[Rfam]
RNA sequence: UGGCCGAGGAUGAAAACAAUAAUCUGAUUCCUUGCAUAUGUUCAGUGAUACGCAAAAAUCUGAUGGAUUAAAGGAUUUUCUGAGGCCA
Numbered sequence: 001u002g003g004c005c006g007a008g009g010a011u012g013a014a015a016a017c018a019a020u021a022a023u024c025u026g027a028u029u030c031c032u033u034g035c036a037u038a039u040g041u042u043c044a045g046u047g048a049u050a051c052g053c054a055a056a057a058a059u060c061u062g063a064u065g066g067a068u069u070a071a072a073g074g075a076u077u078u079u080c081u082g083a084g085g086c087c088a
Stems, first nucleotide, its partner, number of pairs: 002087004
Small nucleolar RNA SNORD93: an 88-nucleotide RNA sequence from Nyctiprogne leucopyga. Its family is annotated with nucleolus and RNA processing in the Gene Ontology. A search with the family's covariance model found it, with a score of 62 bits. Taxonomically the source falls in Nyctiprogne (Eukaryota, Deuterostomia, Tetrapoda, Sauria).